[Rfam]
RNA sequence: CCUUCGCUGAUGAUCCAGCGUGAUGACUUUCGUUCUUCUGAGUGUGCUGAAGCCGCUACUGUGAUCUGAGAAGG
Numbered sequence: 001c002c003u004u005c006g007c008u009g010a011u012g013a014u015c016c017a018g019c020g021u022g023a024u025g026a027c028u029u030u031c032g033u034u035c036u037u038c039u040g041a042g043u044g045u046g047c048u049g050a051a052g053c054c055g056c057u058a059c060u061g062u063g064a065u066c067u068g069a070g071a072a073g074g
Stems, first nucleotide, its partner, number of pairs: 001074003005070001
RNA: Small nucleolar RNA SNORD59